RNA sequence: AUAAACGAGAAGACGGAGACACAAUCCGUUUUCCUCACGCGGUCAAAGUCUUGGGAGGAUGCGAUCUAGGCGCGAUUAUACGCUGCCGCCGGAAACCGGAAACAGAUCGGACGCGUUAAAUAUUGCAAGGCUUCGGCCUUGCUUUUUUUU
Numbered sequence: 001a002u003a004a005a006c007g008a009g010a011a012g013a014c015g016g017a018g019a020c021a022c023a024a025u026c027c028g029u030u031u032u033c034c035u036c037a038c039g040c041g042g043u044c045a046a047a048g049u050c051u052u053g054g055g056a057g058g059a060u061g062c063g064a065u066c067u068a069g070g071c072g073c074g075a076u077u078a079u080a081c082g083c084u085g086c087c088g089c090c091g092g093a094a095a096c097c098g099g100a101a102a103c104a105g106a107u108c109g110g111a112c113g114c115g116u117u118a119a120a121u122a123u124u125g126c127a128a129g130g131c132u133u134c135g136g137c138c139u140u141g142c143u144u145u146u147u148u149u150u
Base pairs, nucleotide, nucleotide: 003150004149005148011031012030013029014028015027016026038115039114040113041112048060049059050058051057063108064107065106066105067104069087070086071085072083073082074081089099090098091097125142126141127140128139129138130137131136
The record is a 150-nucleotide RNA sequence from Aquibium carbonis, which matches "Alphaproteobacterial sRNA ar9" in Rfam.
Lineage of the source: Bacteria > Pseudomonadati > Alphaproteobacteria > Hyphomicrobiales > Aquibium.
A search with the family's covariance model found it, with a score of 125 bits.
The literature on the family includes a 2012 paper in RNA Biol by del Val et al., "A survey of sRNA families in alpha-proteobacteria".
The pairing is the family consensus, mapped onto this sequence.